[Rfam]
RNA sequence: UAGAUUAAUGUAGAUAAGGGAAGUCGGCAAAAUAGAUCCGUAACUUCGGGAAAAGGAUUGGCUCUAAGGGUUGAGUAUAUAGACCCAUCAUUAUCAUAUUAAGCUGUUUUUUUGACUUUAUAAUCUUUAUUGAUUAUUUUGAAUUUAAAACGGCAAAAUAUAUAAUUAUGGAUUCAUCUAUAUACAUUGAACAACUAACUUAGAACUGGAGCGGACAAGGGGAAUCCGACUGUUUAAUUAAAACAUAGCAUUGCGAUGGCCAGAAAAUGGUGUUGACGCAAUGUGAUUUCUGCCCAGUGCUCUGAAUGUCAAAGUGAAGAAAUUCAAACAAGCGCGGGUAAACGGCGGGAGUAACUAUGACUCUCUUAAGGUAGCCAAAUGCCUCGUCAUCUAAUUAGUGACGCGCAUGAAUGGAUUAACGAGAUUCCCACUGUCCCUAUCUACUAUCUAGCGAACCCACAGCCAAGGGAACGGGCUUGGAA
Numbered sequence: 001u002a003g004a005u006u007a008a009u010g011u012a013g014a015u016a017a018g019g020g021a022a023g024u025c026g027g028c029a030a031a032a033u034a035g036a037u038c039c040g041u042a043a044c045u046u047c048g049g050g051a052a053a054a055g056g057a058u059u060g061g062c063u064c065u066a067a068g069g070g071u072u073g074a075g076u077a078u079a080u081a082g083a084c085c086c087a088u089c090a091u092u093a094u095c096a097u098a099u100u101a102a103g104c105u106g107u108u109u110u111u112u113u114g115a116c117u118u119u120a121u122a123a124u125c126u127u128u129a130u131u132g133a134u135u136a137u138u139u140u141g142a143a144u145u146u147a148a149a150a151c152g153g154c155a156a157a158a159u160a161u162a163u164a165a166u167u168a169u170g171g172a173u174u175c176a177u178c179u180a181u182a183u184a185c186a187u188u189g190a191a192c193a194a195c196u197a198a199c200u201u202a203g204a205a206c207u208g209g210a211g212c213g214g215a216c217a218a219g220g221g222g223a224a225u226c227c228g229a230c231u232g233u234u235u236a237a238u239u240a241a242a243a244c245a246u247a248g249c250a251u252u253g254c255g256a257u258g259g260c261c262a263g264a265a266a267a268u269g270g271u272g273u274u275g276a277c278g279c280a281a282u283g284u285g286a287u288u289u290c291u292g293c294c295c296a297g298u299g300c301u302c303u304g305a306a307u308g309u310c311a312a313a314g315u316g317a318a319g320a321a322a323u324u325c326a327a328a329c330a331a332g333c334g335c336g337g338g339u340a341a342a343c344g345g346c347g348g349g350a351g352u353a354a355c356u357a358u359g360a361c362u363c364u365c366u367u368a369a370g371g372u373a374g375c376c377a378a379a380u381g382c383c384u385c386g387u388c389a390u391c392u393a394a395u396u397a398g399u400g401a402c403g404c405g406c407a408u409g410a411a412u413g414g415a416u417u418a419a420c421g422a423g424a425u426u427c428c429c430a431c432u433g434u435c436c437c438u439a440u441c442u443a444c445u446a447u448c449u450a451g452c453g454a455a456c457c458c459a460c461a462g463c464c465a466a467g468g469g470a471a472c473g474g475g476c477u478u479g480g481a482a
Base pairs, nucleotide, nucleotide: 001450002449003448004447010444011443012442013441014440015439016438018436019435020434035059036058037057038056039055044049060207061206063204064203065202066201067200068199069196070195071194072193073192075185076184077183078182079181080180081179082178083177085171086170087169090166091165092164098159099158100157105155106154107153108152110150111149112148113147114146115145117143118142119141120140121136122135123134124133125132208212220429221428222427223426224425225424226423227421228420231245232244233243248284249283250282251281252280253279254278255277259271260270261269262268288415289414290413292346293345294344297343298342299339300338301337302336304335307334308333309332315326316325317324318323347365348364349363350362351361352360366370386402387401388400389399390398463480464479465478466477467476